This 61-nucleotide RNA sequence from Ferrovibrio terrae belongs to the Rfam family "terC RNA". By type it is a cis-regulatory element. Lineage of the source: Bacteria > Pseudomonadota > Alphaproteobacteria > Rhodospirillales > Ferrovibrio.

[Rfam]
RNA sequence: ACCCACGUCCGGGCCCCUCUGGUUGCCAUAUACGGGAUGGCAGCGAUGUCGGACGGCUUCU
Numbered sequence: 001a002c003c004c005a006c007g008u009c010c011g012g013g014c015c016c017c018u019c020u021g022g023u024u025g026c027c028a029u030a031u032a033c034g035g036g037a038u039g040g041c042a043g044c045g046a047u048g049u050c051g052g053a054c055g056g057c058u059u060c061u
Stems, first nucleotide, its partner, number of pairs: 006055007022044008